[Rfam]
RNA sequence: UGCAGCCCUGUCAUAUUCAGUCCCUGCCCUCUCCAUGGCAAGGACCGGCCAUCCAGCUGCCACAGCAGCGCUGUAGUCUGUGUGCCCCACAUCCCUUCCCGUGGGCCCCUGGGGACAAACUGGUGCCACAGGCACGU
Numbered sequence: 001u002g003c004a005g006c007c008c009u010g011u012c013a014u015a016u017u018c019a020g021u022c023c024c025u026g027c028c029c030u031c032u033c034c035a036u037g038g039c040a041a042g043g044a045c046c047g048g049c050c051a052u053c054c055a056g057c058u059g060c061c062a063c064a065g066c067a068g069c070g071c072u073g074u075a076g077u078c079u080g081u082g083u084g085c086c087c088c089a090c091a092u093c094c095c096u097u098c099c100c101g102u103g104g105g106c107c108c109c110u111g112g113g114g115a116c117a118a119a120c121u122g123g124u125g126c127c128a129c130a131g132g133c134a135c136g137u
Stems, first nucleotide, its partner, number of pairs: 002060004018047001020045004025040004073129002076126002078123001085114005